[Rfam]
RNA: permuted transfer-messenger RNA
RNA sequence: GGCGAUAAAUGGACGUUGGAAUAAGCCCAUCGGACCCGGGGGCAGUACCCGGCACCUCCACCAAAUGCCACCGGCCGCAGCCGGGCCAGAGGCAUCUGAUGGGGGUGAAACAGGAUCGACGAGGGUGUAAAGAGCGGUCCUUCGCCCGGUGGGACUCGCCGUUAUCGGGUCACAACAAUAGUUGCCAACGACAACUAUGCUCCGGUGGCCCAGGCUGCGUAA
Number, nucleotide and partner (000 for none) at each position: 001g146002g145003c144004g143005a142006u000007a000008a000009a000010u000011g000012g000013a000014c136015g135016u134017u133018g000019g000020a000021a000022u000023a000024a000025g000026c125027c124028c123029a000030u122031c121032g120033g000034a000035c000036c052037c051038g050039g049040g048041g000042g000043c000044a000045g000046u000047a000048c040049c039050c038051g037052g036053c107054a106055c105056c104057u103058c102059c101060a000061c000062c000063a000064a000065a000066u000067g000068c000069c000070a000071c000072c000073g000074g000075c000076c000077g000078c000079a000080g000081c000082c000083g000084g000085g000086c000087c000088a000089g000090a000091g000092g000093c000094a000095u000096c000097u000098g000099a000100u000101g059102g058103g057104g056105g055106u054107g053108a000109a000110a000111c000112a000113g000114g000115a000116u000117c000118g000119a000120c032121g031122a030123g028124g027125g026126u000127g000128u000129a000130a000131a000132g000133a017134g016135c015136g014137g000138u000139c000140c000141u000142u005143c004144g003145c002146c001147c161148g160149g159150u158151g000152g000153g000154a000155c000156u000157c000158g150159c149160c148161g147162u000163u000164a000165u000166c000167g000168g000169g000170u000171c000172a000173c000174a000175a000176c000177a000178a000179u000180a000181g000182u000183u000184g000185c000186c000187a000188a000189c000190g000191a000192c000193a000194a000195c000196u000197a000198u000199g000200c000201u000202c000203c000204g000205g000206u000207g000208g000209c000210c000211c000212a000213g000214g000215c000216u000217g000218c000219g000220u000221a000222a000